[Rfam]
RNA: BsrG
RNA sequence: GCAACUACAUAAGUAUAGUGGGCGGUUGGCCAUCUUCCUUUCAGAAGGGAGGUGGUUGGAAUGACGGCAUUCGAAGCAUUAAGUCUCGUGGCGCAAUUCAGCAUUUCGCUGAUUGCAUUACUCACACUUAUAAUCGCUGUUGUCGUCUUUCUAAACAAAAAGAAGUAACCGCCCCACCCAGGUUGGCGUUUACUUCUUUUGCUCACAUCAAAAUCUGGUCGACCGCUCUUUAUGCGGUUUGUAGUUGCCGGCACCGGGCAGCUGGAACUGCUCGG
Numbered sequence: 001g002c003a004a005c006u007a008c009a010u011a012a013g014u015a016u017a018g019u020g021g022g023c024g025g026u027u028g029g030c031c032a033u034c035u036u037c038c039u040u041u042c043a044g045a046a047g048g049g050a051g052g053u054g055g056u057u058g059g060a061a062u063g064a065c066g067g068c069a070u071u072c073g074a075a076g077c078a079u080u081a082a083g084u085c086u087c088g089u090g091g092c093g094c095a096a097u098u099c100a101g102c103a104u105u106u107c108g109c110u111g112a113u114u115g116c117a118u119u120a121c122u123c124a125c126a127c128u129u130a131u132a133a134u135c136g137c138u139g140u141u142g143u144c145g146u147c148u149u150u151c152u153a154a155a156c157a158a159a160a161a162g163a164a165g166u167a168a169c170c171g172c173c174c175c176a177c178c179c180a181g182g183u184u185g186g187c188g189u190u191u192a193c194u195u196c197u198u199u200u201g202c203u204c205a206c207a208u209c210a211a212a213a214u215c216u217g218g219u220c221g222a223c224c225g226c227u228c229u230u231u232a233u234g235c236g237g238u239u240u241g242u243a244g245u246u247g248c249c250g251g252c253a254c255c256g257g258g259c260a261g262c263u264g265g266a267a268c269u270g271c272u273c274g275g
Stems, first nucleotide, its partner, number of pairs: 001248005007242003011238001013220001016217001018177005024170004030055003034052005063147007077090002099139004223237004254275008